[Rfam]
RNA sequence: AAACUCGAUAGAGGAGCGGGCGAGAUGACCCGCGGGUGAGCCGGCAGGCAUUGACCCCGCGAAGAGGCGACCCCGCCGAACUCGGUCGCUCGGGCACGGGCACCGGGUGGGCCUGCGGGAAACACCCGCGGGACUGUCUGCCAUCUGCAGGAGCGCUACUCGAGAG
Dot-bracket structure: ......(.(((....(((((...(.....(.(((((...................))))))......)...)))))...(((((((.(((((....))))))))))))((.((((((((.....)))))))).)).(((((.....)))))....))).)......

This 166-nucleotide RNA from Collinsella sp. An307 belongs to the Rfam family "Lysine riboswitch aptamer". The literature on the family includes a 2003 paper in Cell by Mandal et al., "Riboswitches Control Fundamental Biochemical Pathways in Bacillus subtilis and Other Bacteria". Lineage of the source: Bacteria > Bacillati > Coriobacteriales > Coriobacteriaceae > Collinsella. Riboswitches are metabolite binding domains within certain messenger RNAs that serve as precision sensors for their corresponding targets.